[Rfam]
RNA sequence: GGGGCUGAACGGUUUCGACUACGUGCGUCGAUUCAGGGGAAGCGUGUCGGUGCAGGCAAGAGACCACCGUAAGCGUCGCUGCAACCCUAUAAGCGCCGAUUCCAAUCAGCGCGACUACGCUCUCGCUGCCUAAGCAGUAGAGCGUGUCUGUCAGCCCGGGUUCGCCUUCGGCCCGGCCCCUGGCAUCAGCUAGAAGGCUCACCGUCCUGCUCGGUCGCGGAGUAGUACGGGACAACCAACAGCGACUGGGAUCGUCAUCUCGGCUCGUUCGCAAGACCGAGAGAUCCAAGUAGAGACAGCGCGAACUGCACACGGAGAAGCCCUGGAGAAGCGGCGGAGGACCCGGGUUCGAUUCCCGGCAGCUCCACCA
Numbered sequence: 001g002g003g004g005c006u007g008a009a010c011g012g013u014u015u016c017g018a019c020u021a022c023g024u025g026c027g028u029c030g031a032u033u034c035a036g037g038g039g040a041a042g043c044g045u046g047u048c049g050g051u052g053c054a055g056g057c058a059a060g061a062g063a064c065c066a067c068c069g070u071a072a073g074c075g076u077c078g079c080u081g082c083a084a085c086c087c088u089a090u091a092a093g094c095g096c097c098g099a100u101u102c103c104a105a106u107c108a109g110c111g112c113g114a115c116u117a118c119g120c121u122c123u124c125g126c127u128g129c130c131u132a133a134g135c136a137g138u139a140g141a142g143c144g145u146g147u148c149u150g151u152c153a154g155c156c157c158g159g160g161u162u163c164g165c166c167u168u169c170g171g172c173c174c175g176g177c178c179c180c181u182g183g184c185a186u187c188a189g190c191u192a193g194a195a196g197g198c199u200c201a202c203c204g205u206c207c208u209g210c211u212c213g214g215u216c217g218c219g220g221a222g223u224a225g226u227a228c229g230g231g232a233c234a235a236c237c238a239a240c241a242g243c244g245a246c247u248g249g250g251a252u253c254g255u256c257a258u259c260u261c262g263g264c265u266c267g268u269u270c271g272c273a274a275g276a277c278c279g280a281g282a283g284a285u286c287c288a289a290g291u292a293g294a295g296a297c298a299g300c301g302c303g304a305a306c307u308g309c310a311c312a313c314g315g316a317g318a319a320g321c322c323c324u325g326g327a328g329a330a331g332c333g334g335c336g337g338a339g340g341a342c343c344c345g346g347g348u349u350c351g352a353u354u355c356c357c358g359g360c361a362g363c364u365c366c367a368c369c370a
Base pairs, nucleotide, nucleotide: 001366002365003364004363005362006361007360019339020338022336023335024334028330032327033326034325035324036323037322038321043314044313045312046311047310048069049068050067051066052065056082057081058080121141122140123139125138126137127136128135129134149185150184151183152182153181154180156176157175158174159173160172161171164198165197166196167195168194169193202230203229204228205227207225208224209223210222213247214246215245216244217243218242249287250286251285252284253283255282256281258279262278267306268305269304270303275300343359344358345357346356347355
RNA: transfer-messenger RNA
Organism: Nocardia macrotermitis